[Rfam]
RNA sequence: CGCAGCCGUGUCAAAUUCGGUGCCCACCUCGCAUGUGAGGCACCGGCCCAGGAGGCUGCCACAGGAACGCUGUGACUCAUGGGCCCUGCUCCCCUUGCCUGGGCGCAGGGAUAAAUUUGGUCACAGACACUG
Dot-bracket structure: .((((............((((((((((.......))).)))))))..........))))............((((((......(((((.................)))))........))))))........
Shown here is a 132-nucleotide sequence from Chinchilla lanigera, a member of the family "Small nucleolar RNA SNORA5". Rfam describes the family as follows. ACA5 is a member of the H/ACA class of snoRNA that guide the sites of modification of uridines to pseudouridines. The base pairs follow the family's consensus structure, which was predicted with RNAfold. Lineage of the source: Eukaryota > Chordata > Euteleostomi > Glires > Chinchilla. It scores 123 bits against the family's covariance model. The family is grouped with related families in Rfam's "SNORA5 clan". It is annotated as an H/ACA-box small nucleolar RNA.